[Rfam]
RNA sequence: AAAAUACGGUGGCAAACCCGCCGAAAGGCGGCGACGCAAAGCUAAAGGGCCUGUAUGGAUGAUGGCAGCCAGCUGCACGA
Number, nucleotide and partner (000 for none) at each position: 001a000002a000003a000004a000005u000006a000007c000008g000009g000010u000011g000012g037013c036014a000015a000016a000017c000018c031019c030020g029021c028022c027023g000024a000025a000026a000027g022028g021029c020030g019031g018032c000033g000034a000035c000036g013037c012038a000039a000040a074041g073042c072043u071044a000045a000046a000047g070048g069049g066050c065051c064052u000053g000054u000055a000056u000057g000058g000059a000060u000061g000062a000063u000064g051065g050066c049067a000068g000069c048070c047071a043072g042073c041074u040075g000076c000077a000078c000079g000080a000
A member of the RNA family "c-di-GMP-I riboswitch aptamer" from Lawsonibacter hominis, 80 nucleotides long. Rfam 15.1 lists 5,092 matches to the family in 1,772 species. Taxonomically the source falls in Lawsonibacter (Bacteria, Bacillota, Clostridia, Eubacteriales).